[Rfam]
Shown here is a 102-nucleotide sequence from Chlorocebus sabaeus, a member of the family "Y RNA". Taxonomically the source falls in Chlorocebus (Eukaryota, Sarcopterygii, Cercopithecoidea, Cercopithecidae). Rfam classes the family as a non-coding RNA gene. Y RNAs are components of the Ro ribonucleoprotein particle (Ro RNP), in association with Ro60 and La proteins.
RNA sequence: GGCUGGUCCAAGUGCAGUAGUGUUUACAGAUAACUGAUCACAACCAGUUACAGAUUUUGUUGCUCCUUCUCCACUCCCACUGCUUCACUUGACUAGCCUAAA
Number, nucleotide and partner (000 for none) at each position: 001g098002g097003c096004u095005g094006g093007u092008c091009c000010a090011a089012g000013u000014g086015c000016a081017g080018u079019a000020g077021u000022g076023u000024u000025u000026a000027c000028a064029g063030a000031u000032a060033a000034c000035u000036g000037a000038u000039c000040a000041c000042a000043a000044c000045c000046a000047g000048u000049u000050a000051c000052a000053g000054a000055u000056u000057u000058u000059g000060u032061u000062g000063c029064u028065c000066c000067u000068u000069c000070u000071c000072c000073a000074c000075u000076c022077c020078c000079a018080c017081u016082g000083c000084u000085u000086c014087a000088c000089u011090u010091g008092a007093c006094u005095a004096g003097c002098c001099u000100a000101a000102a000